[Rfam]
RNA sequence: UCGAGUUGAGGUAGUAGGUUGUAUAGUAGAGUACUACAUCAUUUAUGGGAGACUGUACAGCCUGCUAACUUUCCUCGA
Dot-bracket structure: (((((..(((.((((((((((((((((...(........)..((....)).)))))))))))))))).)))..)))))
This 78-nucleotide RNA sequence from Laodelphax striatellus belongs to the Rfam family "let-7 microRNA precursor family".
Its family is annotated with miRNA-mediated post-transcriptional gene silencing and RISC complex in the Gene Ontology.
Rfam describes the family as follows. This family represents the microRNAs (miRNA) let-7 and mir-98. let-7 was identified from a study of developmental timing in C. elegans, and was later shown to be part of a much larger class of non-coding RNAs termed miRNAs.
For this family Rfam cites "Control of developmental timing in animals" (Rougvie, Nat Rev Genet, 2001).